[Rfam]
RNA sequence: AUAUAUCACUUUUUGCUAUUUUCGGCUAGUAACAUAAUGACAUGUGGAAUAACUUUUUCACAUGUCAUUGCAUUAUUGGCCGGGAAUAGCAAAACACUGAUAUUU
Numbered sequence: 001a002u003a004u005a006u007c008a009c010u011u012u013u014u015g016c017u018a019u020u021u022u023c024g025g026c027u028a029g030u031a032a033c034a035u036a037a038u039g040a041c042a043u044g045u046g047g048a049a050u051a052a053c054u055u056u057u058u059c060a061c062a063u064g065u066c067a068u069u070g071c072a073u074u075a076u077u078g079g080c081c082g083g084g085a086a087u088a089g090c091a092a093a094a095c096a097c098u099g100a101u102a103u104u105u
Base pairs, nucleotide, nucleotide: 003103004102005101011094012093013092014091015090016089017088018087019086021084022083023082024081025080026079027078028077029076030075031074032073035070036069037068038067039066040065041064042063043062044061045060046059047058048057049056